[Rfam]
RNA sequence: AUACAUUGCAGUAACUGACGACAAAUUGUGGAACUAACCACAGGGGAGCUGCUUUGUACAUAGCCGGUCGUCUGGGCGAAGAAU
Numbered sequence: 001a002u003a004c005a006u007u008g009c010a011g012u013a014a015c016u017g018a019c020g021a022c023a024a025a026u027u028g029u030g031g032a033a034c035u036a037a038c039c040a041c042a043g044g045g046g047a048g049c050u051g052c053u054u055u056g057u058a059c060a061u062a063g064c065c066g067g068u069c070g071u072c073u074g075g076g077c078g079a080a081g082a083a084u
Base pairs, nucleotide, nucleotide: 003057004056005055008052009051010050011049012048015045016044017072018071019070020069021068028041029040030039031038061079063077064076065075
Source information
This 84-nucleotide RNA from Guptibacillus hwajinpoensis belongs to the Rfam family "ZMP/ZTP riboswitch aptamer (pfl RNA motif)". The base pairs follow the family's consensus structure, which is taken from published work. Gene Ontology terms of the family: regulation of purine nucleotide biosynthetic process and one-carbon metabolic process.